Description
A member of the RNA family "ZMP/ZTP riboswitch aptamer (pfl RNA motif)" from Cellulomonas sp. PhB150, 88 nucleotides long. A search with the family's covariance model found it, with a score of 55 bits.
RNA sequence: GGCCACGGUCGUGACUGGCGCAGGUGGGGACAACCACCGGGGAGCGACCGCAGUCCCCUGCAGAGCACCGCCCGCCUGGGUGCCUGGG
Number, nucleotide and partner (000 for none) at each position: 001g000002g000003c053004c000005a000006c050007g049008g048009u047010c046011g045012u044013g000014a000015c041016u040017g076018g075019c074020g073021c000022a000023g000024g037025u036026g035027g034028g000029g000030a000031c000032a000033a000034c027035c026036a025037c024038c000039g000040g016041g015042g000043a000044g012045c011046g010047a009048c008049c007050g006051c000052a000053g003054u000055c000056c000057c000058c000059u000060g000061c000062a000063g000064a000065g083066c082067a081068c080069c079070g000071c000072c000073c020074g019075c018076c017077u000078g000079g069080g068081u067082g066083c065084c000085u000086g000087g000088g000